[Rfam]
RNA sequence: CAAAUUAACCAGACAAUCGCUGCUUUGUGGUAAAACACAGGGGGGAGGAAAGUCCGGGCUCCAUGGGGCAGAGUGCCAGGUAACGCCUGGGGGAUUUAAGCGAGAGCGAAAAUUCACGACUAGUGCAACAGAAAGUAAACCGCCGAUGGCGAAUAUAACCUUCGCACAGGUAAGGGUGAAAGGGUGUGGUAAGAGCACACCGCGCAACUGGUAACAGUUUGUGGCACGGUAAACUCCACUCGGAGCAAGGUCAAAUAGGGAUCUAUUGGCGUGGCCCGCGCUGGAUCCGGGUAGACUGCUUGAGCUAAUGUGCGAAUAUUAGCCUAGAUGAAUGAUUGUCCACGACAGAACCCGGCUUAUCGGUUAAUUUUAUUA
Numbered sequence: 001c002a003a004a005u006u007a008a009c010c011a012g013a014c015a016a017u018c019g020c021u022g023c024u025u026u027g028u029g030g031u032a033a034a035a036c037a038c039a040g041g042g043g044g045g046a047g048g049a050a051a052g053u054c055c056g057g058g059c060u061c062c063a064u065g066g067g068g069c070a071g072a073g074u075g076c077c078a079g080g081u082a083a084c085g086c087c088u089g090g091g092g093g094a095u096u097u098a099a100g101c102g103a104g105a106g107c108g109a110a111a112a113u114u115c116a117c118g119a120c121u122a123g124u125g126c127a128a129c130a131g132a133a134a135g136u137a138a139a140c141c142g143c144c145g146a147u148g149g150c151g152a153a154u155a156u157a158a159c160c161u162u163c164g165c166a167c168a169g170g171u172a173a174g175g176g177u178g179a180a181a182g183g184g185u186g187u188g189g190u191a192a193g194a195g196c197a198c199a200c201c202g203c204g205c206a207a208c209u210g211g212u213a214a215c216a217g218u219u220u221g222u223g224g225c226a227c228g229g230u231a232a233a234c235u236c237c238a239c240u241c242g243g244a245g246c247a248a249g250g251u252c253a254a255a256u257a258g259g260g261a262u263c264u265a266u267u268g269g270c271g272u273g274g275c276c277c278g279c280g281c282u283g284g285a286u287c288c289g290g291g292u293a294g295a296c297u298g299c300u301u302g303a304g305c306u307a308a309u310g311u312g313c314g315a316a317u318a319u320u321a322g323c324c325u326a327g328a329u330g331a332a333u334g335a336u337u338g339u340c341c342a343c344g345a346c347a348g349a350a351c352c353c354g355g356c357u358u359a360u361c362g363g364u365u366a367a368u369u370u371u372a373u374u375a
Base pairs, nucleotide, nucleotide: 002370003369004368005367006366007365008364009363010362011360012340013339014338015337016336017335018334020045021044023042024041025040026039027038028037050358051357052356054355055354056353057352058351059245060244061243062242066277067276068275069274071241072240073239074238075237076090077089078088079087080086091117092115093114094113095112096111097110118236119235123234124233125230126229140175141174142171143170144169147166148165183201184200185199186198187197188196202225203223204222205221206220207219208217209216210215249297250296251295252294259288260287261286262285263284264283268282269281270280271279272278304323305322306321307320308319309318310317311316